[Rfam]
RNA: MAT2A 3'UTR stem loop F
Organism: Echinops telfairi
RNA sequence: CAUGGAGAGGCUGACUUGGCCGGUGUGCUACAGAGAAGCCAGCUUGUUGACAUGCUCCUCCAUUG
Numbered sequence: 001c002a003u004g005g006a007g008a009g010g011c012u013g014a015c016u017u018g019g020c021c022g023g024u025g026u027g028c029u030a031c032a033g034a035g036a037a038g039c040c041a042g043c044u045u046g047u048u049g050a051c052a053u054g055c056u057c058c059u060c061c062a063u064u065g
Base pairs, nucleotide, nucleotide: 001065002064005061007059009056010055011054013048014047015046018044019043020042022040023039024038025031026030